[Rfam]
The record is a 113-nucleotide sequence from Actinokineospora fastidiosa, which matches "mraW RNA" in Rfam. It is annotated as a cis-regulatory element. The organism belongs to Actinokineospora, within Bacteria.
RNA sequence: GACGGAACGGGUGCCGCGAGGCCUCGGUCCGCUCGCUUCCGGCCCUGGCGCACCUUCCCCGGCGCCAGGUCCGACGAGCGGGCGGGGACCUGGCGGCACCCGGUGCGGACCUC
Numbered sequence: 001g002a003c004g005g006a007a008c009g010g011g012u013g014c015c016g017c018g019a020g021g022c023c024u025c026g027g028u029c030c031g032c033u034c035g036c037u038u039c040c041g042g043c044c045c046u047g048g049c050g051c052a053c054c055u056u057c058c059c060c061g062g063c064g065c066c067a068g069g070u071c072c073g074a075c076g077a078g079c080g081g082g083c084g085g086g087g088a089c090c091u092g093g094c095g096g097c098a099c100c101c102g103g104u105g106c107g108g109a110c111c112u113c
Base pairs, nucleotide, nucleotide: 010100011099012098013097014096015095016094020090021089023087024086025085027083028082029081030080031079032078033077034076035075040073041072042071044069045068046067047066048065049064050063051062
Dot-bracket structure: .........(((((((...((.(((.(((((((((....(((.((((((((..........)))))))).))).))))))))).))).))...))))))).............